The family of this 101-nucleotide RNA from Alicyclobacillus acidocaldarius is "TPP riboswitch aptamer (THI element)".
The family's consensus secondary structure is taken from published work.
Vitamin B(1) in its active form thiamin pyrophosphate (TPP) is an essential coenzyme that is synthesised by coupling of pyrimidine and thiazole moieties in bacteria.
[Rfam]
RNA sequence: AGAAGGGCCUAGGGGUGCCGGAAGGCUGAGAGGCGGACAUCCGCCAACCCUGUGGACUCGAUCUGGGUAAUACCAGCGUGAGGAAGUGCCCGUCAUCGUCC
Numbered sequence: 001a002g003a004a005g006g007g008c009c010u011a012g013g014g015g016u017g018c019c020g021g022a023a024g025g026c027u028g029a030g031a032g033g034c035g036g037a038c039a040u041c042c043g044c045c046a047a048c049c050c051u052g053u054g055g056a057c058u059c060g061a062u063c064u065g066g067g068u069a070a071u072a073c074c075a076g077c078g079u080g081a082g083g084a085a086g087u088g089c090c091c092g093u094c095a096u097c098g099u100c101c
Stems, first nucleotide, its partner, number of pairs: 006089001009086002011051004017026003033044004057082004063076004